[Rfam]
Nucleotides: 098
Stems, first nucleotide, its partner, number of pairs: 002064007021051004026046001
Number, partner (000 for none) and nucleotide at each position: 001000c002064u003063a004062g005061u006060u007059g008058a009000g010000g011000g012000g013000c014000g015000c016000u017000g018000c019000a020000g021051c022050g023049g024048a025000c026046g027000u028000u029000a030000a031000u032000u033000u034000u035000a036000c037000a038000a039000a040000u041000u042000a043000a044000u045000c046026c047000a048024u049023c050022c051021g052000u053000c054000a055000c056000g057000c058008u059007c060006a061005a062004u063003u064002a065000g066000u067000u068000u069000u070000a071000u072000c073000u074000u075000u076000c077000a078000u079000u080000c081000a082000a083000a084000g085000g086000g087000c088000g089000c090000u091000c092000u093000a094000u095000u096000u097000a098000a
The family of this 98-nucleotide sequence from Aliikangiella coralliicola is "SAH (S-adenosyl-L-homocysteine) riboswitch aptamer". Rfam 15.1 lists 1,354 matches to the family in 1,132 species.